Shown here is a 65-nucleotide RNA, a member of the family "DUF3800-IX RNA". Actinobacteria, Firmicutes (1 example), Nitrospirae, Proteobacteria, Verrucomicrobia (1 example).

RNA sequence: GAGCCACACUUGAACCGUCCCCUUCAUGGGGCGCGUGUCCGCAAGGACUAGAGUGUGGCUAUCUU
Numbered sequence: 001g002a003g004c005c006a007c008a009c010u011u012g013a014a015c016c017g018u019c020c021c022c023u024u025c026a027u028g029g030g031g032c033g034c035g036u037g038u039c040c041g042c043a044a045g046g047a048c049u050a051g052a053g054u055g056u057g058g059c060u061a062u063c064u065u
Stems, first nucleotide, its partner, number of pairs: 002060010016035003019031004037048004
Dot-bracket structure: .((((((((((....(((((((.....)))).))).((((....))))..)))))))))).....
Rfam classes the family as a small RNA. The family's consensus secondary structure is taken from published work.